A member of the RNA family "Pseudomonas rnk leader" from Pseudomonas fluorescens, 106 nucleotides long.
A reference for the family is Naville and Gautheret (2010), "Premature terminator analysis sheds light on a hidden world of bacterial transcriptional attenuation", Genome Biol.
The source organism's lineage runs through Bacteria, Pseudomonadota, Pseudomonadales, Pseudomonas and Pseudomonas fluorescens.
Rfam links the family to the GO term regulation of gene expression.
Rfam's curators put it in the seed alignment.
The family's RNA type in Rfam is cis-regulatory leader.
[Rfam]
RNA sequence: GGAGCGUAGCUUGUAUAUUUUUUGAGCUGUGAUAGUGUCCGGAAACGCCUCAACCCAUCGAGGCCUGGUGAGAACCCCGUCUUUUUUGGCGGGGUUUUGCUUUUUU
Number, nucleotide and partner (000 for none) at each position: 001g000002g051003a050004g049005c000006g000007u000008a000009g000010c000011u000012u000013g000014u000015a000016u000017a000018u000019u035020u034021u000022u032023u031024g030025a000026g000027c000028u000029g000030u024031g023032a022033u000034a020035g019036u000037g000038u000039c000040c000041g000042g000043a000044a000045a000046c000047g000048c000049c004050u003051c002052a000053a000054c000055c000056c000057a000058u000059c000060g000061a000062g000063g000064c000065c000066u000067g000068g000069u000070g000071a098072g097073a096074a095075c094076c093077c092078c091079g090080u089081c088082u000083u000084u000085u000086u000087u000088g081089g080090c079091g078092g077093g076094g075095u074096u073097u072098u071099g000100c000101u000102u000103u000104u000105u000106u000